Notes:
This 73-nucleotide RNA sequence from Epibacterium ulvae belongs to the Rfam family "Singlet oxygen resistance RNA X". The family has 8 seed sequences and 528 matches in Rfam 15.1. The pairing is the family consensus, mapped onto this sequence. Rfam describes the family as follows. SorX (RSs2461)like SorY is a singlet oxygen induced sRNA that counteracts oxidative stress by targeting mRNA for a transporter in Rhodobacter. It also has an impact on resistance against organic hydroperoxides. Rfam links the family to the GO term response to photooxidative stress. The family's RNA type in Rfam is small RNA.

[Rfam]
RNA sequence: UUCCCGCACAUAUCCGGGUUAUGAUAUGUACCUCCCUGUUGGACUUGGCCGGGCAAGCUGCCCGGCCCUUUUU
Numbered sequence: 001u002u003c004c005c006g007c008a009c010a011u012a013u014c015c016g017g018g019u020u021a022u023g024a025u026a027u028g029u030a031c032c033u034c035c036c037u038g039u040u041g042g043a044c045u046u047g048g049c050c051g052g053g054c055a056a057g058c059u060g061c062c063c064g065g066c067c068c069u070u071u072u073u
Stems, first nucleotide, its partner, number of pairs: 008029007047067008
Dot-bracket structure: .......(((((((........))))))).................((((((((.....))))))))......